RNA: Guanidine-II riboswitch aptamer (mini-ykkC)
Organism: Penaeus vannamei
RNA sequence: CGACGAGGACGACCUCCACGCAACGAGUCGACUGGAGGACGACCUCC
Numbered sequence: 001c002g003a004c005g006a007g008g009a010c011g012a013c014c015u016c017c018a019c020g021c022a023a024c025g026a027g028u029c030g031a032c033u034g035g036a037g038g039a040c041g042a043c044c045u046c047c
Stems, first nucleotide, its partner, number of pairs: 002017001005016004034047005